[Rfam]
RNA sequence: AGUAAAGUGUAAGAUACUUAACUUGGCCUUAGCAGAAGUGAAUCUUUUGCUAAACAUUGUCAAAUUGCGGGGACCCCUUAAAGCUAUUUUAACUAAAUGUAUUAGGUAACUAAUAGAUGGCUCAGGUAAUGACUCGAGGUAUAGUAAAAUCAAAAUAGAUGCACGAAAGGAAAUAGGCAAUCCGCAGCCAAGUGCCUAGUUAGGUAUGCAGUUCAUCGACUAAAUGGUAAUGGGUGUUAAAUCCUUUGAUUUAAUGCUUAAGAUAUAGUCAGACCCUACUUGAAAAAGUACA
Numbered sequence: 001a002g003u004a005a006a007g008u009g010u011a012a013g014a015u016a017c018u019u020a021a022c023u024u025g026g027c028c029u030u031a032g033c034a035g036a037a038g039u040g041a042a043u044c045u046u047u048u049g050c051u052a053a054a055c056a057u058u059g060u061c062a063a064a065u066u067g068c069g070g071g072g073a074c075c076c077c078u079u080a081a082a083g084c085u086a087u088u089u090u091a092a093c094u095a096a097a098u099g100u101a102u103u104a105g106g107u108a109a110c111u112a113a114u115a116g117a118u119g120g121c122u123c124a125g126g127u128a129a130u131g132a133c134u135c136g137a138g139g140u141a142u143a144g145u146a147a148a149a150u151c152a153a154a155a156u157a158g159a160u161g162c163a164c165g166a167a168a169g170g171a172a173a174u175a176g177g178c179a180a181u182c183c184g185c186a187g188c189c190a191a192g193u194g195c196c197u198a199g200u201u202a203g204g205u206a207u208g209c210a211g212u213u214c215a216u217c218g219a220c221u222a223a224a225u226g227g228u229a230a231u232g233g234g235u236g237u238u239a240a241a242u243c244c245u246u247u248g249a250u251u252u253a254a255u256g257c258u259u260a261a262g263a264u265a266u267a268g269u270c271a272g273a274c275c276c277u278a279c280u281u282g283a284a285a286a287a288g289u290a291c292a
Stems, first nucleotide, its partner, number of pairs: 001023002034045003055232005061226002066186006076177003187212002192207004216271001218270005234257009277290005
RNA: Group I catalytic intron
Organism: Ophiocordyceps sinensis